The family of this 89-nucleotide RNA from Chitinivorax tropicus is "Neisseria metabolic switch regulator b (RcoF1/NgncR163)". The family's consensus secondary structure was predicted with RNAfold. Rfam classes the family as a small RNA. About the family: Sibling sRNA described and independently named in three publications. NgncR163 is N. gonorrhoeae while the others are N. meningitidis RNAs. NCBI's taxonomy places the organism under Bacteria, Pseudomonadati, Pseudomonadota, Betaproteobacteria, Chitinivorax.
RNA sequence: UCAUCAAGCACAGCUUUAGUUCUUGAUAGUUUCUCCUCUAUUUCUCCUUUGUAGAUUGCAGCGCGAAGCAUCCAACUUCGCGCUUUUUU
Numbered sequence: 001u002c003a004u005c006a007a008g009c010a011c012a013g014c015u016u017u018a019g020u021u022c023u024u025g026a027u028a029g030u031u032u033c034u035c036c037u038c039u040a041u042u043u044c045u046c047c048u049u050u051g052u053a054g055a056u057u058g059c060a061g062c063g064c065g066a067a068g069c070a071u072c073c074a075a076c077u078u079c080g081c082g083c084u085u086u087u088u089u
Stems, first nucleotide, its partner, number of pairs: 003027006010020002037055005061083008